[Rfam]
RNA sequence: UGGACACUUAUUUUUAUUCAGUUUCUUCUCAAGGUGAAGACAACUUUUUGUAAUGUCCUAGAGAAAUAUAGUAGCUGUUUACCCUUUGCAAGUAAAAAGGGUAGAUCAUUCCACUAUUGACAUUU
Numbered sequence: 001u002g003g004a005c006a007c008u009u010a011u012u013u014u015u016a017u018u019c020a021g022u023u024u025c026u027u028c029u030c031a032a033g034g035u036g037a038a039g040a041c042a043a044c045u046u047u048u049u050g051u052a053a054u055g056u057c058c059u060a061g062a063g064a065a066a067u068a069u070a071g072u073a074g075c076u077g078u079u080u081a082c083c084c085u086u087u088g089c090a091a092g093u094a095a096a097a098a099g100g101g102u103a104g105a106u107c108a109u110u111c112c113a114c115u116a117u118u119g120a121c122a123u124u125u
Stems, first nucleotide, its partner, number of pairs: 002058005008053004020045004024040005069119006084099004